[Rfam]
RNA sequence: AUAUUUGAAUAAUAAUAACCUCAUAUAACCGUGAGAAUAAGGCUCACAAGUUUCUACCAGGUAGCCGUAAACUACCUGACUAUGAGGGAAGUGUACCUAGGG
Numbered sequence: 001a002u003a004u005u006u007g008a009a010u011a012a013u014a015a016u017a018a019c020c021u022c023a024u025a026u027a028a029c030c031g032u033g034a035g036a037a038u039a040a041g042g043c044u045c046a047c048a049a050g051u052u053u054c055u056a057c058c059a060g061g062u063a064g065c066c067g068u069a070a071a072c073u074a075c076c077u078g079a080c081u082a083u084g085a086g087g088g089a090a091g092u093g094u095a096c097c098u099a100g101g102g
Base pairs, nucleotide, nucleotide: 019087020086021085022084023083024082025081031047032046033045034044035043058078059077060076061075062074063073064072
Notes
The record is a 102-nucleotide RNA sequence from Selenihalanaerobacter shriftii, which matches "Purine riboswitch aptamer" in Rfam. Pairs were carried over by alignment from the consensus structure, which is taken from published work.